[Rfam]
Source information:
Shown here is a 32-nucleotide RNA sequence, a member of the family "L31-Firmicutes ribosomal protein leader".
RNA sequence: CUCUGAUUCCGGUGGAUUCAGGGCAAAAGGAG
Numbered sequence: 001c002u003c004u005g006a007u008u009c010c011g012g013u014g015g016a017u018u019c020a021g022g023g024c025a026a027a028a029g030g031a032g
Stems, first nucleotide, its partner, number of pairs: 001023005008016003
On this family, see Eckert and Weinberg, BMC Microbiol 2020: "Discovery of 20 novel ribosomal leader candidates in bacteria and archaea". Pairs were carried over by alignment from the consensus structure, which is taken from published work.